[Rfam]
RNA sequence: UAAUGUUACAGCUCUUCUAGUAUUCGUCUAGCAGCCUUUCCAGUUUUUACCAGAAAGCCCCC
Numbered sequence: 001u002a003a004u005g006u007u008a009c010a011g012c013u014c015u016u017c018u019a020g021u022a023u024u025c026g027u028c029u030a031g032c033a034g035c036c037u038u039u040c041c042a043g044u045u046u047u048u049a050c051c052a053g054a055a056a057g058c059c060c061c062c
Stems, first nucleotide, its partner, number of pairs: 034059001036057005043050002